Streptomyces RNA 5676: a 132-nucleotide sequence from Streptomyces pluripotens.
RNA sequence: AGAUGAGAGUUACCCCCCGUCCGCAGGGGACUGCGGACGGCUUCAGGCCGGGGCUUGUCCAGUGCCGGCCUGGUCGUGCCCUCGCGCACACCACCGGCGCCUGACGGCUCCGGGAUCUCCUCACCGGUCGGA
Numbered sequence: 001a002g003a004u005g006a007g008a009g010u011u012a013c014c015c016c017c018c019g020u021c022c023g024c025a026g027g028g029g030a031c032u033g034c035g036g037a038c039g040g041c042u043u044c045a046g047g048c049c050g051g052g053g054c055u056u057g058u059c060c061a062g063u064g065c066c067g068g069c070c071u072g073g074u075c076g077u078g079c080c081c082u083c084g085c086g087c088a089c090a091c092c093a094c095c096g097g098c099g100c101c102u103g104a105c106g107g108c109u110c111c112g113g114g115a116u117c118u119c120c121u122c123a124c125c126g127g128u129c130g131g132a
Base pairs, nucleotide, nucleotide: 004123005122006121007120009119017040018039019038020037021036022035023034024033025032026031043073044072045071046070047069049067050066051065053063054062076089077088078087079086094113095112096111097110099108100107101106124131125130

It scores 116 bits against the family's covariance model. Rfam classes the family as a small RNA.